Rfam assigns this 96-nucleotide sequence from Hermetia illucens to the family "mir-210 microRNA precursor family".
Nucleotides: 096
Stems, first nucleotide, its partner, number of pairs: 005082002007079005015071008024062001025060002028058006035051002
Number, partner (000 for none) and nucleotide at each position: 001000g002000u003000g004000g005082u006081a007079c008078u009077c010076a011075u012000u013000g014000c015071a016070g017069c018068u019067g020066c021065u022064g023000g024062c025060c026059a027000c028058u029057g030056c031055a032054c033053a034000a035051g036050a037000u038000u039000a040000g041000a042000a043000a044000u045000u046000a047000g048000a049000c050036u051035c052000u053033u054032g055031u056030g057029c058028g059026u060025g061000u062024g063000a064022c065021a066020g067019c068018g069017g070016c071015u072000a073000u074000u075011g076010u077009g078008g079007g080000a081006u082005a083000c084000c085000c086000u087000g088000g089000u090000c091000a092000a093000c094000a095000a096000u

NCBI's taxonomy places the organism under Eukaryota, Protostomia, Panarthropoda, Pterygota, Hermetia. Rfam links the family to the GO terms miRNA-mediated post-transcriptional gene silencing and RISC complex. For this family Rfam cites "Kaposi's sarcoma-associated herpesvirus expresses an array of viral microRNAs in latently infected cells" (Cai et al., Proc Natl Acad Sci U S A, 2005). Rfam 15.1 lists 790 matches to the family in 722 species.